[Rfam]
RNA sequence: ACACGGGAAGGAGGUGGUCCGGAACAUGAAGUCUUCCAGGACGCGUGAGGUGACUGUCCGCUAGUCGCCCGGAACAUCGGACGGAUUGUCGAUCCGCCCGUGCGCCAGCCGGACCACCCGGCGGGGCGGCGAGCGAAUCCCGGCAGUCACCGCAGCCCGUGGGCACGCCGCGACCUCGUCCUACGCGGCAGGACCUCUCCGGAGGCCCGGCCCACGGGCUGUUCCAU
Numbered sequence: 001a002c003a004c005g006g007g008a009a010g011g012a013g014g015u016g017g018u019c020c021g022g023a024a025c026a027u028g029a030a031g032u033c034u035u036c037c038a039g040g041a042c043g044c045g046u047g048a049g050g051u052g053a054c055u056g057u058c059c060g061c062u063a064g065u066c067g068c069c070c071g072g073a074a075c076a077u078c079g080g081a082c083g084g085a086u087u088g089u090c091g092a093u094c095c096g097c098c099c100g101u102g103c104g105c106c107a108g109c110c111g112g113a114c115c116a117c118c119c120g121g122c123g124g125g126g127c128g129g130c131g132a133g134c135g136a137a138u139c140c141c142g143g144c145a146g147u148c149a150c151c152g153c154a155g156c157c158c159g160u161g162g163g164c165a166c167g168c169c170g171c172g173a174c175c176u177c178g179u180c181c182u183a184c185g186c187g188g189c190a191g192g193a194c195c196u197c198u199c200c201g202g203a204g205g206c207c208c209g210g211c212c213c214a215c216g217g218g219c220u221g222u223u224c225c226a227u
Base pairs, nucleotide, nucleotide: 013058014057015056016055017054018053059135060134061133062132064130065129067127068126069125070124072122153221154220155219156218157217158216159215160214161213162212163211164210167189168188169187170186171185172184
Shown here is a 227-nucleotide RNA sequence from Cellulomonas chitinilytica, a member of the family "Actinobacteria sRNA Ms_IGR-5". A reference for the family is Li et al. (2013), "Identification of small RNAs in Mycobacterium smegmatis using heterologous Hfq", RNA. The base pairs follow the family's consensus structure.